Pyrrolysine insertion sequence mtbB: a 100-nucleotide sequence. It is one of the family's seed sequences. The family's RNA type in Rfam is cis-regulatory element. The base pairs follow the family's consensus structure, which was predicted with WAR. Gene Ontology term of the family: pyrrolysine incorporation.

RNA sequence: UAGCUGGGCGUGGGAGAUCCAUUCGGGAUGUCUGUCGCCCACAUAAUGGCUGCCGGGAUGGGGGGCAUCCGAACCGCUGGAGAUCUGGUGGCUUGGAUGC
Numbered sequence: 001u002a003g004c005u006g007g008g009c010g011u012g013g014g015a016g017a018u019c020c021a022u023u024c025g026g027g028a029u030g031u032c033u034g035u036c037g038c039c040c041a042c043a044u045a046a047u048g049g050c051u052g053c054c055g056g057g058a059u060g061g062g063g064g065g066c067a068u069c070c071g072a073a074c075c076g077c078u079g080g081a082g083a084u085c086u087g088g089u090g091g092c093u094u095g096g097a098u099g100c
Stems, first nucleotide, its partner, number of pairs: 007038001010035005016029001018026002074091004079086002